[Rfam]
RNA sequence: CGGACAACAUGUCCGUAGGGAUGUGGCCGAAAGGCUGAACCGUAAA
Numbered sequence: 001c002g003g004a005c006a007a008c009a010u011g012u013c014c015g016u017a018g019g020g021a022u023g024u025g026g027c028c029g030a031a032a033g034g035c036u037g038a039a040c041c042g043u044a045a046a
Base pairs, nucleotide, nucleotide: 001015002014003013004012005011018041019040025036026035027034028033